Rfam assigns this 201-nucleotide RNA sequence from Streptomyces armeniacus to the family "Streptomyces RNA 1601". From the family's description: Identified by deep sequencing of transcriptome at the end of exponential growth phase.
RNA sequence: AUCGACCGGCCGGAUACGAGAGCAUUCCACAUCCAGUGGACCCCACAGCUCACGGUUCCGGCCCACAAGUGGAGGCUCCGACUUCCCACCCGGUGGUUCUCACGGACCGCGGGUCAACGGUCAGGCUGCGCCCCGCGGUGUCCGCGGCGGUGCUCCCGGUCUGUGAGGAGCCCCGCCUGUGACCCGUCCGGGGCGUUUUGU
Numbered sequence: 001a002u003c004g005a006c007c008g009g010c011c012g013g014a015u016a017c018g019a020g021a022g023c024a025u026u027c028c029a030c031a032u033c034c035a036g037u038g039g040a041c042c043c044c045a046c047a048g049c050u051c052a053c054g055g056u057u058c059c060g061g062c063c064c065a066c067a068a069g070u071g072g073a074g075g076c077u078c079c080g081a082c083u084u085c086c087c088a089c090c091c092g093g094u095g096g097u098u099c100u101c102a103c104g105g106a107c108c109g110c111g112g113g114u115c116a117a118c119g120g121u122c123a124g125g126c127u128g129c130g131c132c133c134c135g136c137g138g139u140g141u142c143c144g145c146g147g148c149g150g151u152g153c154u155c156c157c158g159g160u161c162u163g164u165g166a167g168g169a170g171c172c173c174c175g176c177c178u179g180u181g182a183c184c185c186g187u188c189c190g191g192g193g194c195g196u197u198u199u200g201u
Base pairs, nucleotide, nucleotide: 004122005121006120007119008118012059013058060115061114062113063112064111066092069089070088071087072086073084074083093110094109095108096107097106098105099104130194131193132192133191134190135189136186137185138184143181144180145179146177147176148175149174150173152171153170154169155168156167
The literature on the family includes a 2011 paper in RNA Biol by Vockenhuber et al., "Deep sequencing-based identification of small non-coding RNAs in Streptomyces coelicolor".
The family's RNA type in Rfam is small RNA.
It scores 112 bits against the family's covariance model.
The base pairs follow the family's consensus structure.
Taxonomically the source falls in Streptomyces (Bacteria, Bacillati, Kitasatosporales, Streptomycetaceae).